[Rfam]
The family of this 118-nucleotide sequence from Serpentinicella alkaliphila is "Molybdenum/Tungsten riboswitch aptamer (Moco RNA motif)". Gene Ontology terms of the family: regulation of gene expression, tungstate binding and molybdenum ion binding. Lineage of the source: Bacteria > Bacillati > Clostridia > Natronincolaceae > Serpentinicella. It scores 78 bits against the family's covariance model.
RNA sequence: AUUAAAUAAUUAUUCCGAGUCAUUCUAUUCUAAGGGAAACUAUGAAUGAAUGACCUAUGGGUAAUUAAAGAAAUUUAAUUGCCUCCCGUGUUUGGAAAGGAAGAAUUUUUUUACUAAC
Numbered sequence: 001a002u003u004a005a006a007u008a009a010u011u012a013u014u015c016c017g018a019g020u021c022a023u024u025c026u027a028u029u030c031u032a033a034g035g036g037a038a039a040c041u042a043u044g045a046a047u048g049a050a051u052g053a054c055c056u057a058u059g060g061g062u063a064a065u066u067a068a069a070g071a072a073a074u075u076u077a078a079u080u081g082c083c084u085c086c087c088g089u090g091u092u093u094g095g096a097a098a099g100g101a102a103g104a105a106u107u108u109u110u111u112u113a114c115u116a117a118c
Stems, first nucleotide, its partner, number of pairs: 004111001006109001011104001013102004019054007027047004034041002059084011085095002